[Rfam]
RNA sequence: AUCAUCAGUAGUGGUUAAUACUAUCUCAAGAUAAUAUUAAUUACCAAAAUUUUUAUAGGAACCGAAUGAUUCGAUGAUCUGUGUAUUUCAAAAUGGAGUUUGUGGCCUGUGGUUUGGGAAAUUUUCCUUUUCCGCAGGUUUGGGGCUCUGUUAAAGUUGAUACUGGUACGGGAUCUAUCGAAUCAAGUCAACAACCCAUAGCUGAAUGAGUUUUGACCGUCCCCAAACAGGUCGGCCACAAAACGCAUUUCGUUUCCGGUUUCUUAGAUUAAAUUUUCACUGCUAUGAGGAGGUGCGUGCAACAUUUGUUGUGCGUAAGAGCAUGUCUUCCAGAGGAGCGUGUAGUGCGCUCUGAGAGUUUGGAAUUUUGUCCGUUGUGCCCUUCCUCAUGCCAGAACAUUG
Numbered sequence: 001a002u003c004a005u006c007a008g009u010a011g012u013g014g015u016u017a018a019u020a021c022u023a024u025c026u027c028a029a030g031a032u033a034a035u036a037u038u039a040a041u042u043a044c045c046a047a048a049a050u051u052u053u054u055a056u057a058g059g060a061a062c063c064g065a066a067u068g069a070u071u072c073g074a075u076g077a078u079c080u081g082u083g084u085a086u087u088u089c090a091a092a093a094u095g096g097a098g099u100u101u102g103u104g105g106c107c108u109g110u111g112g113u114u115u116g117g118g119a120a121a122u123u124u125u126c127c128u129u130u131u132c133c134g135c136a137g138g139u140u141u142g143g144g145g146c147u148c149u150g151u152u153a154a155a156g157u158u159g160a161u162a163c164u165g166g167u168a169c170g171g172g173a174u175c176u177a178u179c180g181a182a183u184c185a186a187g188u189c190a191a192c193a194a195c196c197c198a199u200a201g202c203u204g205a206a207u208g209a210g211u212u213u214u215g216a217c218c219g220u221c222c223c224c225a226a227a228c229a230g231g232u233c234g235g236c237c238a239c240a241a242a243a244c245g246c247a248u249u250u251c252g253u254u255u256c257c258g259g260u261u262u263c264u265u266a267g268a269u270u271a272a273a274u275u276u277u278c279a280c281u282g283c284u285a286u287g288a289g290g291a292g293g294u295g296c297g298u299g300c301a302a303c304a305u306u307u308g309u310u311g312u313g314c315g316u317a318a319g320a321g322c323a324u325g326u327c328u329u330c331c332a333g334a335g336g337a338g339c340g341u342g343u344a345g346u347g348c349g350c351u352c353u354g355a356g357a358g359u360u361u362g363g364a365a366u367u368u369u370g371u372c373c374g375u376u377g378u379g380c381c382c383u384u385c386c387u388c389a390u391g392c393c394a395g396a397a398c399a400u401u402g
Stems, first nucleotide, its partner, number of pairs: 008051001012046001013044001014041007022033004057264007068184009080172001082170006092152009104140009155164003204250005210244001213241003217235003221231001280395003284391001286389008294317009319381001323378003327374001329364006335353007